Rfam assigns this 98-nucleotide RNA sequence from Sporolactobacillus inulinus to the family "pemK RNA". Taxonomically the source falls in Sporolactobacillus (Bacteria, Bacillota, Bacilli, Sporolactobacillaceae). The match comes from Rfam's covariance-model search (59 bits). The family's RNA type in Rfam is cis-regulatory element.

RNA sequence: AUAAUGAUACUCCCGCAUAGCCUAGUCCGAGCGUUAAAAGCGUCGCAGGCAAUGGAUGCGGCUGCAUGAGAACCAUGCAGGGGUGAGACCCCCCGUGA
Numbered sequence: 001a002u003a004a005u006g007a008u009a010c011u012c013c014c015g016c017a018u019a020g021c022c023u024a025g026u027c028c029g030a031g032c033g034u035u036a037a038a039a040g041c042g043u044c045g046c047a048g049g050c051a052a053u054g055g056a057u058g059c060g061g062c063u064g065c066a067u068g069a070g071a072a073c074c075a076u077g078c079a080g081g082g083g084u085g086a087g088a089c090c091c092c093c094c095g096u097g098a
Stems, first nucleotide, its partner, number of pairs: 012095001013061006062080003066076003081094003